RNA sequence: AGUGCGGGCCGGGCCCCUCUGGCGAGACAUGCUGUUGCGUGUGUCGUGAUGUCGGACCGCAUCG
Number, nucleotide and partner (000 for none) at each position: 001a000002g000003u000004g000005c000006g058007g057008g000009c055010c054011g053012g052013g000014c000015c000016c000017c000018u000019c000020u000021g000022g047023c046024g045025a044026g000027a042028c041029a040030u039031g038032c000033u000034g000035u000036u000037g000038c031039g030040u029041g028042u027043g000044u025045c024046g023047u022048g000049a000050u000051g000052u012053c011054g010055g009056a000057c007058c006059g000060c000061a000062u000063c000064g000

Overview
The record is a 64-nucleotide sequence from Sphingobium sp. YG1, which matches "terC RNA" in Rfam. The family's RNA type in Rfam is cis-regulatory element. Rfam 15.1 lists 1,112 matches to the family in 772 species.